[Rfam]
RNA sequence: CAUCGUGAGGUGAAUCGAAGGGAGCCCUAGGCAAACCGUGGGUCCGACGAACAGGAACCGCAUCAGGCAUAUGGGAGUGGGUAAGGUGCCCAAAGAAACUGAAGCCCCAAGCUAUACGGAACUCUCGGUGUAAAUGCGGCGGAUAGAUGACGGGAAAGAUUGUGUU
Numbered sequence: 001c002a003u004c005g006u007g008a009g010g011u012g013a014a015u016c017g018a019a020g021g022g023a024g025c026c027c028u029a030g031g032c033a034a035a036c037c038g039u040g041g042g043u044c045c046g047a048c049g050a051a052c053a054g055g056a057a058c059c060g061c062a063u064c065a066g067g068c069a070u071a072u073g074g075g076a077g078u079g080g081g082u083a084a085g086g087u088g089c090c091c092a093a094a095g096a097a098a099c100u101g102a103a104g105c106c107c108c109a110a111g112c113u114a115u116a117c118g119g120a121a122c123u124c125u126c127g128g129u130g131u132a133a134a135u136g137c138g139g140c141g142g143a144u145a146g147a148u149g150a151c152g153g154g155a156a157a158g159a160u161u162g163u164g165u166u
Stems, first nucleotide, its partner, number of pairs: 001012004024166001026164001028162001032158001036153004041148001042144005058139005067131003072127007079107004085100003